Rfam assigns this 104-nucleotide RNA sequence from Psychromicrobium silvestre to the family "Glycine riboswitch aptamer".
RNA sequence: CGAUCCGCGGCGGGAGAGUCCUCCUGCCACUACGUAAGGCAGCAGGCGCCGUAGGAGCAAACCCUCCCCGGGAAUCUCUCAGGCACCCGCACCGCCGCGGCAAG
Numbered sequence: 001c002g003a004u005c006c007g008c009g010g011c012g013g014g015a016g017a018g019u020c021c022u023c024c025u026g027c028c029a030c031u032a033c034g035u036a037a038g039g040c041a042g043c044a045g046g047c048g049c050c051g052u053a054g055g056a057g058c059a060a061a062c063c064c065u066c067c068c069c070g071g072g073a074a075u076c077u078c079u080c081a082g083g084c085a086c087c088c089g090c091a092c093c094g095c096c097g098c099g100g101c102a103a104g
Base pairs, nucleotide, nucleotide: 006099007098008097009096010095011094012093013092020046021045022044048084049083050082051080055078056077057076062070

From the family's description: This family represents the bacterial glycine riboswitch. Rfam links the family to the GO term glycine biosynthetic process. The match comes from Rfam's covariance-model search (62 bits).